[Rfam]
RNA: c-di-AMP riboswitch aptamer (ydaO/yuaA leader)
RNA sequence: UCGAACAGUCAGCUUAAUUCAGUCUCACCCUAACCAAAGAAGACUGAAGCGGAGGAACCAAUAUUGGGGCGUAUCGCAAGAAGGACACCUCUCAGUCCUAGCCCGUCAGCUAACUCCGUCGGCAUUGAGGGGAGACUGA
Number, nucleotide and partner (000 for none) at each position: 001u000002c000003g000004a000005a000006c000007a000008g000009u000010c000011a000012g123013c122014u121015u000016a000017a000018u048019u047020c046021a045022g044023u043024c042025u041026c000027a000028c000029c000030c000031u000032a000033a000034c000035c000036a000037a000038a000039g000040a000041a025042g024043a023044c022045u021046g020047a019048a018049g119050c118051g117052g116053a115054g114055g000056a000057a000058c000059c066060a065061a000062u000063a000064u000065u060066g059067g104068g103069g102070c000071g000072u000073a000074u000075c080076g000077c000078a000079a000080g075081a000082a000083g098084g097085a096086c095087a000088c000089c000090u000091c000092u000093c000094a000095g086096u085097c084098c083099u000100a000101g000102c069103c068104c067105g000106u000107c000108a000109g000110c000111u000112a000113a000114c054115u053116c052117c051118g050119u049120c000121g014122g013123c012124a000125u000126u000127g000128a000129g000130g000131g000132g000133a000134g000135a000136c000137u000138g000139a000